[Rfam]
RNA sequence: UGCUUAUAGAGAAAGACGGAGGGAUUAGACCCAACGAAGUCUUAGCAACCUGUGCAAACAAGGUGCUACAUUCUAUCCGCAGCUGGCGGAAAAGAUAAGUG
Numbered sequence: 001u002g003c004u005u006a007u008a009g010a011g012a013a014a015g016a017c018g019g020a021g022g023g024a025u026u027a028g029a030c031c032c033a034a035c036g037a038a039g040u041c042u043u044a045g046c047a048a049c050c051u052g053u054g055c056a057a058a059c060a061a062g063g064u065g066c067u068a069c070a071u072u073c074u075a076u077c078c079g080c081a082g083c084u085g086g087c088g089g090a091a092a093a094g095a096u097a098a099g100u101g
Stems, first nucleotide, its partner, number of pairs: 001101007013043005021032003026075004044067004049063002051060003071093001076090005
SAM riboswitch aptamer (S box leader): a 101-nucleotide RNA from Pedobacter psychrophilus. Lineage of the source: Bacteria > Bacteroidota > Sphingobacteriia > Sphingobacteriaceae > Pedobacter.